[Rfam]
RNA sequence: AAAAUGUAAUUAAAUGUAACUUAUAUAAUUUGGCAUAAUGGGCCAAAGUCUCUACGCUAGACCUAUCUAGACGCUACAAGUUGCUUUAAGAAGUAC
Numbered sequence: 001a002a003a004a005u006g007u008a009a010u011u012a013a014a015u016g017u018a019a020c021u022u023a024u025a026u027a028a029u030u031u032g033g034c035a036u037a038a039u040g041g042g043c044c045a046a047a048g049u050c051u052c053u054a055c056g057c058u059a060g061a062c063c064u065a066u067c068u069a070g071a072c073g074c075u076a077c078a079a080g081u082u083g084c085u086u087u088a089a090g091a092a093g094u095a096c
Stems, first nucleotide, its partner, number of pairs: 018082005024076002030046005056072001057070005
Dot-bracket structure: .................(((((.((....(((((.......))))).........((((((....))))).)..)).)))))..............
Rfam assigns this 96-nucleotide RNA from Spiroplasma helicoides to the family "Purine riboswitch aptamer". Rfam describes the family as follows. Riboswitches are metabolite binding domains within certain messenger RNAs that serve as precision sensors for their corresponding targets. Allosteric rearrangement of mRNA structure is mediated by ligand binding, and this results in modulation of gene expression. A class of riboswitches that selectively recognises guanine and becomes saturated at concentrations as low as 5 nM. In Bacillus subtilis, this mRNA motif is located on at least five separate transcriptional units that together encode 17 genes that are mostly involved in purine transport and purine nucleotide biosynthesis. Lineage of the source: Bacteria > Bacillati > Mollicutes > Spiroplasmataceae > Spiroplasma.